[Rfam]
RNA: L4-Archaeoglobi ribosomal protein leades
Nucleotides: 070
Stems, first nucleotide, its partner, number of pairs: 001070005009060005014040004022034003042054005
Number, partner (000 for none) and nucleotide at each position: 001070c002069u003068g004067a005066u006000c007000g008000a009060g010059a011058c012057g013056u014040c015039g016038g017037g018000c019000c020000a021000a022034c023033g024032c025000c026000a027000g028000u029000g030000c031000a032024g033023c034022g035000a036000g037017c038016c039015c040014g041000u042054u043053u044052c045051c046050u047000g048000a049000g050046a051045g052044g053043a054042g055000a056013g057012c058011g059010u060009c061000g062000a063000a064000g065000a066005g067004u068003c069002a070001g